[Rfam]
RNA sequence: AGUUCGUUCACUGGAGGCAGCGGUUCAUCGAUCUUUUCCUGGGAAAAAAACCUUAUGUAAAUAAAUAAAACUAUAAAGCAUGAAGAGAUCGAUAAACCUCUGCAUCCAGUGUUUGCCUC
Numbered sequence: 001a002g003u004u005c006g007u008u009c010a011c012u013g014g015a016g017g018c019a020g021c022g023g024u025u026c027a028u029c030g031a032u033c034u035u036u037u038c039c040u041g042g043g044a045a046a047a048a049a050a051c052c053u054u055a056u057g058u059a060a061a062u063a064a065a066u067a068a069a070a071c072u073a074u075a076a077a078g079c080a081u082g083a084a085g086a087g088a089u090c091g092a093u094a095a096a097c098c099u100c101u102g103c104a105u106c107c108a109g110u111g112u113u114u115g116c117c118u119c
Base pairs, nucleotide, nucleotide: 013107014106015105018102019101020100022098023097024096025095027093028092029091030090031089032088033087036084037083038082
The family of this 119-nucleotide RNA sequence from Capsella rubella is "MIR162_1 microRNA precursor family". Rfam links the family to the GO terms RISC complex and miRNA-mediated post-transcriptional gene silencing. Clan: MIR167 microRNA precursor clan. On this family, see Reinhart et al., Genes Dev 2002: "MicroRNAs in plants". The organism belongs to Capsella, within Eukaryota. Pairs were carried over by alignment from the consensus structure, which was predicted with RNAalifold.